[Rfam]
RNA sequence: AUCGUUCACUCUUGCCUGCAAGUAACUCUUUUCCCAGGCAGGGCGGAAGUAGGGAGUCUUCCUGAAGGAACGCACC
Numbered sequence: 001a002u003c004g005u006u007c008a009c010u011c012u013u014g015c016c017u018g019c020a021a022g023u024a025a026c027u028c029u030u031u032u033c034c035c036a037g038g039c040a041g042g043g044c045g046g047a048a049g050u051a052g053g054g055a056g057u058c059u060u061c062c063u064g065a066a067g068g069a070a071c072g073c074a075c076c
Stems, first nucleotide, its partner, number of pairs: 003072005009043004046073001052063003
A member of the RNA family "Glutamine riboswitch aptamer (glnA leader)" from Halomicronema hongdechloris, 76 nucleotides long. It scores 44 bits against the family's covariance model. Pairs were carried over by alignment from the consensus structure, which is taken from published work.